[Rfam]
RNA sequence: GCGGAAAUAGCUUAAUGGUAGAGCAUAGCCUUGCCAAGGCUGAGGUUGAGGGUUCAAGUCCCUCCUUCCGCU
Numbered sequence: 001g002c003g004g005a006a007a008u009a010g011c012u013u014a015a016u017g018g019u020a021g022a023g024c025a026u027a028g029c030c031u032u033g034c035c036a037a038g039g040c041u042g043a044g045g046u047u048g049a050g051g052g053u054u055c056a057a058g059u060c061c062c063u064c065c066u067u068c069c070g071c072u
Stems, first nucleotide, its partner, number of pairs: 001071006010024004026042005048064005
The family of this 72-nucleotide sequence is "tRNA". Rfam's curators put it in the seed alignment. The family's RNA type in Rfam is transfer RNA.